The family of this 68-nucleotide RNA is "Cyano-1 RNA". The family's consensus secondary structure is taken from published work.
[Rfam]
Nucleotides: 068
Base pairs, nucleotide, nucleotide: 014064015063016062017061019059022056023055027051028050029049030047031046032045
Number, partner (000 for none) and nucleotide at each position: 001000g002000u003000u004000u005000a006000u007000g008000u009000g010000a011000g012000g013000a014064a015063a016062a017061a018000u019059c020000g021000c022056u023055u024000c025000a026000c027051g028050g029049g030047g031046u032045g033000g034000a035000a036000a037000c038000a039000a040000g041000g042000a043000a044000a045032c046031a047030u048000u049029c050028c051027c052000g053000a054000g055023a056022a057000g058000c059019g060000u061017u062016u063015u064014u065000g066000g067000a068000a

Overview
Rfam classes the family as a small RNA.